[Rfam]
Shown here is a 99-nucleotide RNA sequence from Gossypium anomalum, a member of the family "Small nucleolar RNA R64/Z200 family".
RNA sequence: CUUCUGCUGUGAUGAAUUAUGAAAUAAAUUCACAUGUCAGACUUCAGAGAUUUUUUUUAAAAAUCUAUGAGAAGAAAAUUCGUGUCUUCUGAGCAGAUA
Numbered sequence: 001c002u003u004c005u006g007c008u009g010u011g012a013u014g015a016a017u018u019a020u021g022a023a024a025u026a027a028a029u030u031c032a033c034a035u036g037u038c039a040g041a042c043u044u045c046a047g048a049g050a051u052u053u054u055u056u057u058u059a060a061a062a063a064u065c066u067a068u069g070a071g072a073a074g075a076a077a078a079u080u081c082g083u084g085u086c087u088u089c090u091g092a093g094c095a096g097a098u099a
Stems, first nucleotide, its partner, number of pairs: 003097005049065006

Its family is annotated with nucleolus and RNA processing in the Gene Ontology. For this family Rfam cites "Purified box C/D snoRNPs are able to reproduce site-specific 2'-O-methylation of target RNA in vitro" (Galardi et al., Mol Cell Biol, 2002).